[Rfam]
RNA: mir-67 microRNA precursor family
Organism: Portunus trituberculatus
RNA sequence: AGGUCAGGUCACUCACUCAACUUGGAUGUGAUGUGCUGACCCUCCAUCACAACCUCCUUGAGUGAGUGACCUCCCUC
Numbered sequence: 001a002g003g004u005c006a007g008g009u010c011a012c013u014c015a016c017u018c019a020a021c022u023u024g025g026a027u028g029u030g031a032u033g034u035g036c037u038g039a040c041c042c043u044c045c046a047u048c049a050c051a052a053c054c055u056c057c058u059u060g061a062g063u064g065a066g067u068g069a070c071c072u073c074c075c076u077c
Stems, first nucleotide, its partner, number of pairs: 009068001012066009024054002027051007